[Rfam]
RNA sequence: GGAGGUUGCGAUGAGGAUAACAAGCUCCCUCUUCUGAAAUCAAGUUGAGGUCAAACGCUGGCAGAAUCGAACCAAUUAAUCAUAAGCCACCACUGAGUAA
Dot-bracket structure: .....((((.......................................................................................))))

Rfam assigns this 100-nucleotide RNA from Nelumbo nucifera to the family "Small nucleolar RNA R30/Z108". Rfam classes the family as a C/D-box small nucleolar RNA. snoR30 is a C/D box small nucleolar RNA which acts as a methylation guide for 18S ribosomal RNA in plants.